RNA sequence: GAUUCUAUUCGUAGGAACAAAAAGAAGCAGAUCUAUUCUAUACUCGAUAAGUACCAAUACGCAAUUGUA
Numbered sequence: 001g002a003u004u005c006u007a008u009u010c011g012u013a014g015g016a017a018c019a020a021a022a023a024g025a026a027g028c029a030g031a032u033c034u035a036u037u038c039u040a041u042a043c044u045c046g047a048u049a050a051g052u053a054c055c056a057a058u059a060c061g062c063a064a065u066u067g068u069a
Stems, first nucleotide, its partner, number of pairs: 003022002006019001008017003044067001051060003